[Rfam]
RNA sequence: AGAAAGAGACAGGUAAAGGCUGAGAACAGGCGGAGCAUGGACGGAGCUCCGAGCAGAAAUGUCUGUUUUGGCUCUACCCAUGCACUGCCUCUUCCCUGGCUUCCUUGUCUCCUCCCUUC
Numbered sequence: 001a002g003a004a005a006g007a008g009a010c011a012g013g014u015a016a017a018g019g020c021u022g023a024g025a026a027c028a029g030g031c032g033g034a035g036c037a038u039g040g041a042c043g044g045a046g047c048u049c050c051g052a053g054c055a056g057a058a059a060u061g062u063c064u065g066u067u068u069u070g071g072c073u074c075u076a077c078c079c080a081u082g083c084a085c086u087g088c089c090u091c092u093u094c095c096c097u098g099g100c101u102u103c104c105u106u107g108u109c110u111c112c113u114c115c116c117u118u119c
Base pairs, nucleotide, nucleotide: 016102017101018100020098022096024094025093026092028090029089030088031087032086033085035083036082037081038080039079040078044074045073
Rfam assigns this 119-nucleotide RNA sequence from Salix viminalis to the family "MIR408 microRNA precursor family". It scores 92 bits against the family's covariance model. The literature on the family includes a 2004 paper in Plant Cell by Sunkar and Zhu, "Novel and stress-regulated microRNAs and other small RNAs from Arabidopsis". The base pairs follow the family's consensus structure, which was predicted with WAR.